A member of the RNA family "Bacterial small subunit ribosomal RNA" from Candidatus Electrothrix marina, 355 nucleotides of a longer RNA. The family has 99 seed sequences and 42,628 matches in Rfam 15.1. The match comes from Rfam's covariance-model search (1612 bits). Taxonomically the source falls in Candidatus Electrothrix (Bacteria, Pseudomonadati, Desulfobulbia, Desulfobulbales). Rfam links the family to the GO terms structural constituent of ribosome and ribosome.
RNA sequence: GGCGUAAAGGGCGCGCAGGCGGCUUGGCAAGUCAGAUGUGAAAGCCCACGGCUUAACCGUGGAAGUGCAUUUGAAACUGCCUGGCUUGAGUAUCAGAGGGGAAAGUGGAAUUCCCGGUGUAGAGGUGAAAUUCGUAGAUAUCGGGAGGAAUACCGGUGGCGAAGGCGACUUUCUGGCUGAAUACUGACGCUGAGGCGCGAAAGCGUGGGGAGCAAACAGGAUUAGAUACCCUGGUAGUCCACGCCGUAAACGAUGUCAACUAGAUGCAGGGGGUGUUGAUCCCCUCUGUGUCGCAGCUAACGCAUUAAGUUGACCGCCUGGGGAGUACGGUCGCAAGAUUAAAACUCAAAGGAAU
Numbered sequence: 001g002g003c004g005u006a007a008a009g010g011g012c013g014c015g016c017a018g019g020c021g022g023c024u025u026g027g028c029a030a031g032u033c034a035g036a037u038g039u040g041a042a043a044g045c046c047c048a049c050g051g052c053u054u055a056a057c058c059g060u061g062g063a064a065g066u067g068c069a070u071u072u073g074a075a076a077c078u079g080c081c082u083g084g085c086u087u088g089a090g091u092a093u094c095a096g097a098g099g100g101g102a103a104a105g106u107g108g109a110a111u112u113c114c115c116g117g118u119g120u121a122g123a124g125g126u127g128a129a130a131u132u133c134g135u136a137g138a139u140a141u142c143g144g145g146a147g148g149a150a151u152a153c154c155g156g157u158g159g160c161g162a163a164g165g166c167g168a169c170u171u172u173c174u175g176g177c178u179g180a181a182u183a184c185u186g187a188c189g190c191u192g193a194g195g196c197g198c199g200a201a202a203g204c205g206u207g208g209g210g211a212g213c214a215a216a217c218a219g220g221a222u223u224a225g226a227u228a229c230c231c232u233g234g235u236a237g238u239c240c241a242c243g244c245c246g247u248a249a250a251c252g253a254u255g256u257c258a259a260c261u262a263g264a265u266g267c268a269g270g271g272g273g274u275g276u277u278g279a280u281c282c283c284c285u286c287u288g289u290g291u292c293g294c295a296g297c298u299a300a301c302g303c304a305u306u307a308a309g310u311u312g313a314c315c316g317c318c319u320g321g322g323g324a325g326u327a328c329g330g331u332c333g334c335a336a337g338a339u340u341a342a343a344a345c346u347c348a349a350a351g352g353a354a355u
Base pairs, nucleotide, nucleotide: 001318002317003316009315011198012197013196014195016192018191019190020189022085023084024083026081027080028079030078031077032074033073034072035071036070037069038068039067040066046062047061048060049059050058051057089185090184091183093180094179095178096177100174101173102172103171104170105169106168107151111147112146113145114144115143116142117141118140122133123132124131159166160165203244204243205242206241207240208239212238213237217233218232219231220230255314256313257312258311259310260309263292264291265290266289267288268287269286270285271284272283273282296303297302320347321346322345329340330339331338332337
Dot-bracket structure: (((.....(.((((.(.(((.(((.(((.(((((((((((.....((((((.....))))))...)))))))))..))))).)))...(((.((((...((((((((...((((((((...(((......)))......))))))))...).......((....)).)))))))..))))..)))...))))..))))....((((((...((...((((.........))))...))))))))..........((((((..(((((((((((........)))))))))))...((....)).....)))))))))).(((......((((....))))....)))........